[Rfam]
RNA sequence: UGUCCUUGUAAUUUGGGGGAUUGGCCCCAGAGUAUCCACGAUCCGGCCGUAACCGGAUGUAUCCAGGGAAA
Numbered sequence: 001u002g003u004c005c006u007u008g009u010a011a012u013u014u015g016g017g018g019g020a021u022u023g024g025c026c027c028c029a030g031a032g033u034a035u036c037c038a039c040g041a042u043c044c045g046g047c048c049g050u051a052a053c054c055g056g057a058u059g060u061a062u063c064c065a066g067g068g069a070a071a
Stems, first nucleotide, its partner, number of pairs: 001071001003069006012031007041058006

This 71-nucleotide RNA sequence belongs to the Rfam family "2dG-II purine riboswitch aptamer". Rfam links the family to the GO term purine nucleobase biosynthetic process. The base pairs follow the family's consensus structure, which is taken from published work.